[Rfam]
The record is a 98-nucleotide RNA sequence from Arthrobacter sp. Leaf69, which matches "TPP riboswitch aptamer (THI element)" in Rfam.
Taxonomically the source falls in Arthrobacter (Bacteria, Bacillati, Actinomycetota, Micrococcaceae).
RNA sequence: AUCCCUGACACGGGGUGCCGCGCAUCGAGCCGGCUGAGAUCCAGACCCGUUGAACCUGUCCGGCUAGUACCGGCGAAGGGAUGUCUCUCGUGACCACC
Numbered sequence: 001a002u003c004c005c006u007g008a009c010a011c012g013g014g015g016u017g018c019c020g021c022g023c024a025u026c027g028a029g030c031c032g033g034c035u036g037a038g039a040u041c042c043a044g045a046c047c048c049g050u051u052g053a054a055c056c057u058g059u060c061c062g063g064c065u066a067g068u069a070c071c072g073g074c075g076a077a078g079g080g081a082u083g084u085c086u087c088u089c090g091u092g093a094c095c096a097c098c
Stems, first nucleotide, its partner, number of pairs: 007085004011049004016043001017034004055079003060073004